Shown here is an 88-nucleotide RNA sequence from Geobacter sp. OR-1, a member of the family "c-di-GMP-I riboswitch aptamer".
Rfam links the family to the GO term cyclic-di-GMP binding.

RNA sequence: UUUCCGAACAGGUAAACCUCGGGUAACCGAGGGGCACAAAGCCACAGGUCCCAAGUUCAGCAAUGAACCGGACAGCUGGGUUGUCGAA
Number, nucleotide and partner (000 for none) at each position: 001u000002u000003u000004c000005c000006g000007a000008a000009c000010a000011g000012g037013u036014a000015a000016a000017c032018c031019u030020c029021g028022g027023g000024u000025a000026a000027c022028c021029g020030a019031g018032g017033g000034g000035c000036a013037c012038a000039a000040a082041g081042c080043c079044a000045c078046a077047g076048g073049u072050c071051c000052c000053a000054a000055g000056u067057u066058c065059a064060g000061c000062a000063a000064u059065g058066a057067a056068c000069c000070g000071g050072a049073c048074a000075g000076c047077u046078g045079g043080g042081u041082u040083g000084u000085c000086g000087a000088a000

The match comes from Rfam's covariance-model search (67 bits).